Shown here is a 194-nucleotide RNA sequence, a member of the family "RT-16 RNA". The base pairs follow the family's consensus structure, which is taken from published work. The family's RNA type in Rfam is small RNA.
RNA sequence: CCUGGAGGAUUAUCGAGUUCGUUCCGACAGAAUGGAAAUUAAAGACAAGACUCGAAAGGUUACACGUUCAUUCAUAGUGCUUUGUUUUUUAGCCAUGAAAUUCAAUAAUGAUAAUUGGUAGUUAUGAAAAACCUUGGGGAAGUUUGGAGCGAAGAUUAAAGUUAUGGUGUGACUUAAUGAAUGGACUAUCUUUG
Numbered sequence: 001c002c003u004g005g006a007g008g009a010u011u012a013u014c015g016a017g018u019u020c021g022u023u024c025c026g027a028c029a030g031a032a033u034g035g036a037a038a039u040u041a042a043a044g045a046c047a048a049g050a051c052u053c054g055a056a057a058g059g060u061u062a063c064a065c066g067u068u069c070a071u072u073c074a075u076a077g078u079g080c081u082u083u084g085u086u087u088u089u090u091a092g093c094c095a096u097g098a099a100a101u102u103c104a105a106u107a108a109u110g111a112u113a114a115u116u117g118g119u120a121g122u123u124a125u126g127a128a129a130a131a132c133c134u135u136g137g138g139g140a141a142g143u144u145u146g147g148a149g150c151g152a153a154g155a156u157u158a159a160a161g162u163u164a165u166g167g168u169g170u171g172a173c174u175u176a177a178u179g180a181a182u183g184g185a186c187u188a189u190c191u192u193u194g
Base pairs, nucleotide, nucleotide: 001059002058003057005053006052007051010048011047066186067185068184069183070182071181072180073179074178075177077170078169105165106164107163108162109161112158113157114156115155116154121150122149